A member of the RNA family "Small nucleolar RNA psi18S-841/snoR66" from Drosophila rhopaloa, 140 nucleotides long. The match comes from Rfam's covariance-model search (116 bits). It is annotated as an H/ACA-box small nucleolar RNA. Rfam describes the family as follows. psi18S-841 is a member of the H/ACA class of snoRNA. This family is responsible for guiding the modification of uridine 841 in Drosophila 18S rRNA to pseudouridine. The organism belongs to Sophophora, within Eukaryota. The family is grouped with related families in Rfam's "SNORA28 clan". The base pairs follow the family's consensus structure, which was predicted with RNAfold.
[Rfam]
RNA sequence: AGCAAAUGCACUCUGUGUCACUUUGAUAUUUAGCCUCAAGUGAUGACAAUUUGUUAGUUUGCCAGAUCAAGGAGAUGCGUCUUAUCCAUGUGGUCAAAUUUUAACCAAGUUGCUCACAUUGAAAACGCCCCUAACACCAC
Numbered sequence: 001a002g003c004a005a006a007u008g009c010a011c012u013c014u015g016u017g018u019c020a021c022u023u024u025g026a027u028a029u030u031u032a033g034c035c036u037c038a039a040g041u042g043a044u045g046a047c048a049a050u051u052u053g054u055u056a057g058u059u060u061g062c063c064a065g066a067u068c069a070a071g072g073a074g075a076u077g078c079g080u081c082u083u084a085u086c087c088a089u090g091u092g093g094u095c096a097a098a099u100u101u102u103a104a105c106c107a108a109g110u111u112g113c114u115c116a117c118a119u120u121g122a123a124a125a126c127g128c129c130c131c132u133a134a135c136a137c138c139a140c
Stems, first nucleotide, its partner, number of pairs: 002062006010054002014048003017044007025037002071132002074130001078127002085122002088119006095112001097110001